Rfam assigns this 92-nucleotide RNA sequence from Swaminathania salitolerans to the family "Glycine riboswitch aptamer". The organism belongs to Swaminathania, within Bacteria.
RNA sequence: ACACCGAUUUACGGGAGAGACCGGACACAUUUUCCGGCGCCGAAGGAGCAACCGCCCCGGAAACUCUCAGGCAAAAGGACCGGGAUCGGCUG
Number, nucleotide and partner (000 for none) at each position: 001a000002c000003a000004c000005c000006g087007a086008u085009u084010u083011a000012c082013g081014g080015g000016a000017g000018a000019g000020a000021c037022c036023g035024g034025a000026c000027a000028c000029a000030u000031u000032u000033u000034c024035c023036g022037g021038c000039g072040c071041c070042g068043a067044a000045g000046g066047a065048g064049c000050a000051a000052c060053c059054g000055c000056c000057c000058c000059g053060g052061a000062a000063a000064c048065u047066c046067u043068c042069a000070g041071g040072c039073a000074a000075a000076a000077g000078g000079a000080c014081c013082g012083g010084g009085a008086u007087c006088g000089g000090c000091u000092g000